The family of this 67-nucleotide RNA from Bombyx mori is "mir-2774 microRNA precursor family". For this family Rfam cites "MicroRNAs of Bombyx mori identified by Solexa sequencing" (Liu et al., BMC Genomics, 2010). NCBI's taxonomy places the organism under Eukaryota, Altocrustacea, Eumetabola, Glossata, Bombyx. Pairs were carried over by alignment from the consensus structure, which was predicted with RNAalifold.
[Rfam]
RNA sequence: ACAACGUUCGGACCGUCGAUCUAUCGAGAAAUAUCACCGCCUCGGUGGAAGACCUCCCCUCCGUCAU
Dot-bracket structure: ...(((...((...(((..(((((((((............))))))))).)))...))...)))...